RNA: Plant small nucleolar RNA R71
RNA sequence: AAUCUAUGGUGUGGGCACUUCCUGAGCAUUGACUUGAAACAUUUCGAUGCCUCAUAUAGGGAUUCACCUUUAUAUUGCUUAAAUUUGGCAAUUUCUUGCCUAAUAUG
Numbered sequence: 001a002a003u004c005u006a007u008g009g010u011g012u013g014g015g016c017a018c019u020u021c022c023u024g025a026g027c028a029u030u031g032a033c034u035u036g037a038a039a040c041a042u043u044u045c046g047a048u049g050c051c052u053c054a055u056a057u058a059g060g061g062a063u064u065c066a067c068c069u070u071u072a073u074a075u076u077g078c079u080u081a082a083a084u085u086u087g088g089c090a091a092u093u094u095c096u097u098g099c100c101u102a103a104u105a106u107g
Stems, first nucleotide, its partner, number of pairs: 003105001005102002057074002060071001